[Rfam]
The record is a 131-nucleotide RNA sequence from Alaudala cheleensis, which matches "Small nucleolar RNA SNORA77" in Rfam. The literature on the family includes a 2006 paper in RNA by Schattner et al., "A computational screen for mammalian pseudouridylation guide H/ACA RNAs". Its family is annotated with RNA processing and nucleolus in the Gene Ontology. Pairs were carried over by alignment from the consensus structure, which was predicted with RNAalifold. The family's RNA type in Rfam is H/ACA-box small nucleolar RNA. ACA63 (SNORA77) is a member of the H/ACA class of snoRNAs that guide the sites of modification of uridines to pseudouridines. This snoRNA was identified by computational screening and its expression in mouse experimentally verified by Northern blot and primer extension analysis. ACA63 is proposed to guide the pseudouridylation of 18S rRNA U814.
RNA sequence: GCAGACUCACUCUGUGCUGAACUGCAGCCUUCAGUUCAGGAGCUUUUCUGUCUGCAAGAGUAAGAGCUCCCAGGAGUGACGAUGGCCUUCCUCCUGUGGAAGGCUGUUACAGUUGCUGGUGGGACAUGGCU
Numbered sequence: 001g002c003a004g005a006c007u008c009a010c011u012c013u014g015u016g017c018u019g020a021a022c023u024g025c026a027g028c029c030u031u032c033a034g035u036u037c038a039g040g041a042g043c044u045u046u047u048c049u050g051u052c053u054g055c056a057a058g059a060g061u062a063a064g065a066g067c068u069c070c071c072a073g074g075a076g077u078g079a080c081g082a083u084g085g086c087c088u089u090c091c092u093c094c095u096g097u098g099g100a101a102g103g104c105u106g107u108u109a110c111a112g113u114u115g116c117u118g119g120u121g122g123g124a125c126a127u128g129g130c131u
Stems, first nucleotide, its partner, number of pairs: 001055006015041001017039004022034003067122002070119004075113001077111002081107001084105005